[Rfam]
RNA sequence: AUACUUAAUUUGGAGCUCUCUAAACUCCAACUAAAAAAGGAGGUGAUGGAUGACCCUUGCUGCUUUUUCAUGGAUACCUUUGACUUUACACAUUAAAAGUUUGAUAAAGUCAUGGGUUUGCAUGAAUUUGGAGAUGGGGUUGUCUGAUCUUUUUAUAUUGGAGUGAUGGGAGCUCCAAAAUUGGUCCUU
Numbered sequence: 001a002u003a004c005u006u007a008a009u010u011u012g013g014a015g016c017u018c019u020c021u022a023a024a025c026u027c028c029a030a031c032u033a034a035a036a037a038a039g040g041a042g043g044u045g046a047u048g049g050a051u052g053a054c055c056c057u058u059g060c061u062g063c064u065u066u067u068u069c070a071u072g073g074a075u076a077c078c079u080u081u082g083a084c085u086u087u088a089c090a091c092a093u094u095a096a097a098a099g100u101u102u103g104a105u106a107a108a109g110u111c112a113u114g115g116g117u118u119u120g121c122a123u124g125a126a127u128u129u130g131g132a133g134a135u136g137g138g139g140u141u142g143u144c145u146g147a148u149c150u151u152u153u154u155a156u157a158u159u160g161g162a163g164u165g166a167u168g169g170g171a172g173c174u175c176c177a178a179a180a181u182u183g184g185u186c187c188u189u
Stems, first nucleotide, its partner, number of pairs: 013175008024164006036152001060133002063130001069124004077116001
The family of this 189-nucleotide RNA from Trifolium subterraneum is "MIR159 microRNA precursor family".
Pairs were carried over by alignment from the consensus structure, which was predicted with WAR.
Its family is annotated with RISC complex and miRNA-mediated post-transcriptional gene silencing in the Gene Ontology.
The source organism's lineage runs through Eukaryota, Streptophytina, eudicotyledons, rosids and Trifolium.
The literature on the family includes a 2004 paper in Mol Cell by Jones-Rhoades and Bartel, "Computational identification of plant microRNAs and their targets, including a stress-induced miRNA".